[Rfam]
RNA sequence: UGACGGGAACCCGCACAAGCGGUGGAGCAUGUGGUUUAAUUCGAUGGUAAGCGGAAAACCUUACCAAGGCUUGACAUUCCUGGAAUCUCUUGGAAACAAGAGAGUGCCGCAAGGAACCAGGUAACAGGUGCUGCAUGGUUGUCGUCAGCUCGUGUCGUGAGAUGUCGGGUUAAGUCCUUUAACGAGCGCAACCCUCAUCCUAAUUUAUAAUUCAUUAGGAAACUGCCGAGGAUAACUCGGAGGAAGGUGAGGAUGACGUCAAAUCAGCAUGGCUCUUACGCCUUGGGCUACACACGUGCUACAAUGGCCAGUACAAUGGGUCGCUAAGUCGCAAGAUGGAGCUAAUCCCACCAAAACUGGUCUCAGUUCAGAUUGGAGUCUGCAAUUCGACUCCAUGAAGUUGGAAUCGCUAGUAACCGCGUAUCAGCAUGGCGCGGUGAAUACGUUCUCGGGUUUUGUACACACCGCCCGUCACACCAAUAGAGUUGGUAAUACCCGAAGGCUCUACACUAACGUAGGGACGAAGGUAGGAUCAGCGAUAAGGGUGAAGUCGUAACAAGGCAUCCGUAGCGGAAGCUGUGGAUGGAUCACCUCCUUU
Numbered sequence: 001u002g003a004c005g006g007g008a009a010c011c012c013g014c015a016c017a018a019g020c021g022g023u024g025g026a027g028c029a030u031g032u033g034g035u036u037u038a039a040u041u042c043g044a045u046g047g048u049a050a051g052c053g054g055a056a057a058a059c060c061u062u063a064c065c066a067a068g069g070c071u072u073g074a075c076a077u078u079c080c081u082g083g084a085a086u087c088u089c090u091u092g093g094a095a096a097c098a099a100g101a102g103a104g105u106g107c108c109g110c111a112a113g114g115a116a117c118c119a120g121g122u123a124a125c126a127g128g129u130g131c132u133g134c135a136u137g138g139u140u141g142u143c144g145u146c147a148g149c150u151c152g153u154g155u156c157g158u159g160a161g162a163u164g165u166c167g168g169g170u171u172a173a174g175u176c177c178u179u180u181a182a183c184g185a186g187c188g189c190a191a192c193c194c195u196c197a198u199c200c201u202a203a204u205u206u207a208u209a210a211u212u213c214a215u216u217a218g219g220a221a222a223c224u225g226c227c228g229a230g231g232a233u234a235a236c237u238c239g240g241a242g243g244a245a246g247g248u249g250a251g252g253a254u255g256a257c258g259u260c261a262a263a264u265c266a267g268c269a270u271g272g273c274u275c276u277u278a279c280g281c282c283u284u285g286g287g288c289u290a291c292a293c294a295c296g297u298g299c300u301a302c303a304a305u306g307g308c309c310a311g312u313a314c315a316a317u318g319g320g321u322c323g324c325u326a327a328g329u330c331g332c333a334a335g336a337u338g339g340a341g342c343u344a345a346u347c348c349c350a351c352c353a354a355a356a357c358u359g360g361u362c363u364c365a366g367u368u369c370a371g372a373u374u375g376g377a378g379u380c381u382g383c384a385a386u387u388c389g390a391c392u393c394c395a396u397g398a399a400g401u402u403g404g405a406a407u408c409g410c411u412a413g414u415a416a417c418c419g420c421g422u423a424u425c426a427g428c429a430u431g432g433c434g435c436g437g438u439g440a441a442u443a444c445g446u447u448c449u450c451g452g453g454u455u456u457u458g459u460a461c462a463c464a465c466c467g468c469c470c471g472u473c474a475c476a477c478c479a480a481u482a483g484a485g486u487u488g489g490u491a492a493u494a495c496c497c498g499a500a501g502g503c504u505c506u507a508c509a510c511u512a513a514c515g516u517a518g519g520g521a522c523g524a525a526g527g528u529a530g531g532a533u534c535a536g537c538g539a540u541a542a543g544g545g546u547g548a549a550g551u552c553g554u555a556a557c558a559a560g561g562c563a564u565c566c567g568u569a570g571c572g573g574a575a576g577c578u579g580u581g582g583a584u585g586g587a588u589c590a591c592c593u594c595c596u597u598u
Stems, first nucleotide, its partner, number of pairs: 001462002003459003007456007015446002019410005024302001026300008034291002040055004064286007077124002079121005086103007105116001107114002127275002130273004136269002138264003141260001143258002148187006154163003167178003193252004198220007223243002226240005306362007318349003323342002328337003369400001374395007416438007465560001467557001470553002475547004481541002485537006493529004501522001503520004508515001562585010

About this RNA
A member of the RNA family "Bacterial small subunit ribosomal RNA" from an uncultured bacterium, 598 nucleotides of a longer RNA. The sequence is in the family's curated seed alignment. Rfam 15.1 lists 42,628 matches to the family in 10,626 species.